The record is an 88-nucleotide sequence from Acetivibrio saccincola, which matches "c-di-GMP-I riboswitch aptamer" in Rfam. The organism belongs to Acetivibrio, within Bacteria. The match comes from Rfam's covariance-model search (82 bits).

RNA sequence: UUUCGAUAAUAGCAAACUCAAUGAAAAUUGAGGACGCAAAGCCACAGGUCUUCGGUUGAUUUACAACCAAGACGGCUGGGUUGCCGAA
Numbered sequence: 001u002u003u004c005g006a007u008a009a010u011a012g013c014a015a016a017c018u019c020a021a022u023g024a025a026a027a028u029u030g031a032g033g034a035c036g037c038a039a040a041g042c043c044a045c046a047g048g049u050c051u052u053c054g055g056u057u058g059a060u061u062u063a064c065a066a067c068c069a070a071g072a073c074g075g076c077u078g079g080g081u082u083g084c085c086g087a088a
Base pairs, nucleotide, nucleotide: 012037013036017032018031019030020029021028022027040082041081042080043079045078046077047076048073049072050071055067056066057065058064